[Rfam]
RNA sequence: CAAUGAAGGAAGAAUGGUAAUGUGCACAUAAAUUGAUUUGGGUCUCUAGGCUUGCCUUCUCUGUUGCUAUUUGGCUUUGAUUUGAGGGCAUGGUUCCGUAGCAAAACA
Numbered sequence: 001c002a003a004u005g006a007a008g009g010a011a012g013a014a015u016g017g018u019a020a021u022g023u024g025c026a027c028a029u030a031a032a033u034u035g036a037u038u039u040g041g042g043u044c045u046c047u048a049g050g051c052u053u054g055c056c057u058u059c060u061c062u063g064u065u066g067c068u069a070u071u072u073g074g075c076u077u078u079g080a081u082u083u084g085a086g087g088g089c090a091u092g093g094u095u096c097c098g099u100a101g102c103a104a105a106a107c108a
Stems, first nucleotide, its partner, number of pairs: 012025001014023002040091001042089003050081001052079001054075003
RNA: Small nucleolar RNA snoR100
Organism: Rhododendron simsii